[Rfam]
The family of this 116-nucleotide sequence from Rarobacter faecitabidus is "SAM (S-adenosyl methionine) riboswitch aptamer". Pairs were carried over by alignment from the consensus structure, which is taken from published work. Rfam 15.1 lists 2,360 matches to the family in 1,305 species. NCBI's taxonomy places the organism under Bacteria, Actinomycetota, Actinomycetes, Rarobacteraceae, Rarobacter. SAM-IV is a mRNA element that regulates gene expression via direct sensing of S-adenosylmethionine (SAM or AdoMet). SAM-IV riboswitches share conserved nucleotide positions with the previously described SAM-I riboswitches sequence analysis and molecular recognition experiments suggest that SAM-I and SAM-IV riboswitches share similar ligand binding sites, but have different scaffolds. For this family Rfam cites "The aptamer core of SAM-IV riboswitches mimics the ligand-binding site of SAM-I riboswitches" (Weinberg et al., RNA, 2008). Its Rfam clan is "SAM clan". A search with the family's covariance model found it, with a score of 100 bits.

RNA sequence: GGUCACGAGUACCAGUGGAAAGCCCCGGCUCACUGGUCGGCAACCCUCCUGCAAGCGGUGGGGUGCUCCGGGUGACGACCAGGCCACGCGCGAAGUGCGUGCGGCAAGCGCUACGC
Numbered sequence: 001g002g003u004c005a006c007g008a009g010u011a012c013c014a015g016u017g018g019a020a021a022g023c024c025c026c027g028g029c030u031c032a033c034u035g036g037u038c039g040g041c042a043a044c045c046c047u048c049c050u051g052c053a054a055g056c057g058g059u060g061g062g063g064u065g066c067u068c069c070g071g072g073u074g075a076c077g078a079c080c081a082g083g084c085c086a087c088g089c090g091c092g093a094a095g096u097g098c099g100u101g102c103g104g105c106a107a108g109c110g111c112u113a114c115g116c
Base pairs, nucleotide, nucleotide: 001080002079003078004077009038011037012036013035014034015033016032021030022029039067040066041065044063045062046061048058049057083105084104085103087101088100089099090098091097092096